This 121-nucleotide RNA sequence from Mesorhizobium ciceri belongs to the Rfam family "Alphaproteobacterial ar14". The base pairs follow the family's consensus structure. By type it is a small RNA.
RNA sequence: GAAUUUCGUCAAAGCCGACCUCCUCCCCGGCGAUGACGAAUAUGGCCGGCCUUCACCUCCUCCCGAAGGUCGACCCCAAAAACGACACCCGCCGGACCUCCUCCCCCGGCGGGUGUUGUUG
Numbered sequence: 001g002a003a004u005u006u007c008g009u010c011a012a013a014g015c016c017g018a019c020c021u022c023c024u025c026c027c028c029g030g031c032g033a034u035g036a037c038g039a040a041u042a043u044g045g046c047c048g049g050c051c052u053u054c055a056c057c058u059c060c061u062c063c064c065g066a067a068g069g070u071c072g073a074c075c076c077c078a079a080a081a082a083c084g085a086c087a088c089c090c091g092c093c094g095g096a097c098c099u100c101c102u103c104c105c106c107c108g109g110c111g112g113g114u115g116u117u118g119u120u121g
Stems, first nucleotide, its partner, number of pairs: 007038003011034001014031004044075002047072007085116011